[Rfam]
RNA sequence: GACGCGCCUAGGGUCGCUCCCGAAAGCAAAGCACCUUACUUUGUCGGCGCGUUUCCAUUCAUAAGGA
Numbered sequence: 001g002a003c004g005c006g007c008c009u010a011g012g013g014u015c016g017c018u019c020c021c022g023a024a025a026g027c028a029a030a031g032c033a034c035c036u037u038a039c040u041u042u043g044u045c046g047g048c049g050c051g052u053u054u055c056c057a058u059u060c061a062u063a064a065g066g067a
Stems, first nucleotide, its partner, number of pairs: 001053008011021003027043005035066003